[Rfam]
RNA sequence: CGGCUGUAAUGGUCACAACUUGAAGAAGCGGUCUGUUCCCCGCAAUGCUUCAGCCAUUUCUAAUACCUCAACGCGCGCCCGGUUCGAACACGGCGGUGGCUCCCCACUCGCAUGGGUAACCUGCGAUCGCUGGACUCAGGGGCCUUAGGCAAUGAAGAAUACUUCUUGAGGGAGGACUCACUCUGCAGAGAUCUCUUCACCGUGGUGUGGCGGCGCUGGAUUACGUGCGUUUGUGGUUUGGCUGGAGUUUGUGGGUUUGUGCUGUCGACUUUAUUU
Dot-bracket structure: .(((.......)))......(((((.....(.(.....(((.(((.((((((((((........(((..((((((((.((((((((.((((.((((.((.(((.(..(((((.((....)))))))..)..)))))........(...)...((((((.....((((....(((......)))....))))..)))))))))).))))..))).)))))....))))))))...))).))))))))))))).))).....).).....)))))...
Numbered sequence: 001c002g003g004c005u006g007u008a009a010u011g012g013u014c015a016c017a018a019c020u021u022g023a024a025g026a027a028g029c030g031g032u033c034u035g036u037u038c039c040c041c042g043c044a045a046u047g048c049u050u051c052a053g054c055c056a057u058u059u060c061u062a063a064u065a066c067c068u069c070a071a072c073g074c075g076c077g078c079c080c081g082g083u084u085c086g087a088a089c090a091c092g093g094c095g096g097u098g099g100c101u102c103c104c105c106a107c108u109c110g111c112a113u114g115g116g117u118a119a120c121c122u123g124c125g126a127u128c129g130c131u132g133g134a135c136u137c138a139g140g141g142g143c144c145u146u147a148g149g150c151a152a153u154g155a156a157g158a159a160u161a162c163u164u165c166u167u168g169a170g171g172g173a174g175g176a177c178u179c180a181c182u183c184u185g186c187a188g189a190g191a192u193c194u195c196u197u198c199a200c201c202g203u204g205g206u207g208u209g210g211c212g213g214c215g216c217u218g219g220a221u222u223a224c225g226u227g228c229g230u231u232u233g234u235g236g237u238u239u240g241g242c243u244g245g246a247g248u249u250u251g252u253g254g255g256u257u258u259g260u261g262c263u264g265u266c267g268a269c270u271u272u273a274u275u276u
Stems, first nucleotide, its partner, number of pairs: 002014003021273005031263001033261001039255003043251003047248010065237003070231008079219005084213003088208004093203004098136002101134003105129001108126005114121002145149001153199006164191004172183003
Fungal signal recognition particle RNA: a 276-nucleotide RNA sequence from Coleophoma cylindrospora. The match comes from Rfam's covariance-model search (135 bits). Taxonomically the source falls in Coleophoma (Eukaryota, Ascomycota, saccharomyceta, Dermateaceae). Rfam classes the family as a non-coding RNA gene.